RNA sequence: GUCCGUUCAUCCCUUCGGGGACGCAUGAUAACCUAGCAUGGAACGGGGCUAGG
Numbered sequence: 001g002u003c004c005g006u007u008c009a010u011c012c013c014u015u016c017g018g019g020g021a022c023g024c025a026u027g028a029u030a031a032c033c034u035a036g037c038a039u040g041g042a043a044c045g046g047g048g049c050u051a052g053g
Stems, first nucleotide, its partner, number of pairs: 004045005010021004032053006

Shown here is a 53-nucleotide sequence, a member of the family "Glutamine-II riboswitch aptamer". The base pairs follow the family's consensus structure, which is taken from published work. For this family Rfam cites "Structure and ligand binding of the glutamine-II riboswitch" (Huang et al., Nucleic Acids Res, 2019).